[Rfam]
RNA: Plastid-psbA-3 3UTR RNA
Organism: Hibiscus trionum
RNA sequence: AAAGGAGCAAUACCAACACUUUUGAUUGAACAAGAAAAUGGUUAUUGCUCAUUUAUUU
Numbered sequence: 001a002a003a004g005g006a007g008c009a010a011u012a013c014c015a016a017c018a019c020u021u022u023u024g025a026u027u028g029a030a031c032a033a034g035a036a037a038a039u040g041g042u043u044a045u046u047g048c049u050c051a052u053u054u055a056u057u058u
Stems, first nucleotide, its partner, number of pairs: 001054003005050008014041001020035005